Annotation: This 156-nucleotide RNA from Populus tomentosa belongs to the Rfam family "MIR2912 microRNA precursor family".

RNA sequence: UCUAGAACUUGAGAUAUGGGUUGAACACUGAACAAUGUCCAGGCUGCAGGAUAGAUUCGGACUUCUCCAUUGUUGCUAUAAUUUGGACUUGAAAACAGCCUUUUUAAAUCUUGGACUCCACAUGAAAGUUGUAGGCCUAUGUCUUACCUAAUUUGU
Numbered sequence: 001u002c003u004a005g006a007a008c009u010u011g012a013g014a015u016a017u018g019g020g021u022u023g024a025a026c027a028c029u030g031a032a033c034a035a036u037g038u039c040c041a042g043g044c045u046g047c048a049g050g051a052u053a054g055a056u057u058c059g060g061a062c063u064u065c066u067c068c069a070u071u072g073u074u075g076c077u078a079u080a081a082u083u084u085g086g087a088c089u090u091g092a093a094a095a096c097a098g099c100c101u102u103u104u105u106a107a108a109u110c111u112u113g114g115a116c117u118c119c120a121c122a123u124g125a126a127a128g129u130u131g132u133a134g135g136c137c138u139a140u141g142u143c144u145u146a147c148c149u150a151a152u153u154u155g156u
Stems, first nucleotide, its partner, number of pairs: 002155001004153002009146001011145010021134003025130001027129003035123003042118002045115001048112005054105002059100002062098002072088003
The match comes from Rfam's covariance-model search (115 bits).